[Rfam]
RNA: rmf RNA
RNA sequence: UUCGAUAGAAAUCAACCCAGGUCAUGGCUGCAACGGUCAUGACACGGAGACCGCCACGCCGGCAGCGGGCUCCAUCGGCAGACCUUCUGCCCGACCUCGCCGUGAGGUCACCAGGACAUAACAGUCAAC
Numbered sequence: 001u002u003c004g005a006u007a008g009a010a011a012u013c014a015a016c017c018c019a020g021g022u023c024a025u026g027g028c029u030g031c032a033a034c035g036g037u038c039a040u041g042a043c044a045c046g047g048a049g050a051c052c053g054c055c056a057c058g059c060c061g062g063c064a065g066c067g068g069g070c071u072c073c074a075u076c077g078g079c080a081g082a083c084c085u086u087c088u089g090c091c092c093g094a095c096c097u098c099g100c101c102g103u104g105a106g107g108u109c110a111c112c113a114g115g116a117c118a119u120a121a122c123a124g125u126c127a128a129c
Stems, first nucleotide, its partner, number of pairs: 021043009048071002051068004077091006093109006